Shown here is an 86-nucleotide RNA from Owenweeksia hongkongensis, a member of the family "tRNA". The match comes from Rfam's covariance-model search (50 bits). Transfer RNA (tRNA) molecules are approximately 80 nucleotides in length. Their secondary structure includes four short double-helical elements and three loops (D, anti-codon, and T loops). Further hydrogen bonds mediate the characteristic L-shaped molecular structure. tRNAs have two regions of fundamental functional importance: the anti-codon, which is responsible for specific mRNA codon recognition, and the 3' end, to which the tRNAs corresponding amino acid is attached (by aminoacyl-tRNA synthetases). tRNAs cope with the degeneracy of the genetic code in two manners: having more than one tRNA (with a specific anti-codon) for a particular amino acid; and 'wobble' base-pairing, i.e. permitting non-standard base-pairing at the 3rd anti-codon position. By type it is a transfer RNA.
RNA sequence: GCCCAGGUGGUGGAAUUGGUAGACACGCCAGCUUGAGGGGCUGGUGGCCGUUUUAGGCCGUGCAGGUUCAAGUCCUGUUCUGGGCA
Number, nucleotide and partner (000 for none) at each position: 001g085002c084003c083004c082005a081006g080007g079008u000009g000010g026011u025012g024013g000014a000015a000016u000017u000018g000019g000020u000021a000022g000023a000024c012025a011026c010027g000028c044029c043030a042031g041032c040033u000034u000035g000036a000037g000038g000039g000040g032041c031042u030043g029044g028045u000046g000047g000048c000049c000050g000051u000052u000053u000054u000055a000056g000057g000058c000059c000060g000061u000062g078063c077064a076065g075066g074067u000068u000069c000070a000071a000072g000073u000074c066075c065076u064077g063078u062079u007080c006081u005082g004083g003084g002085c001086a000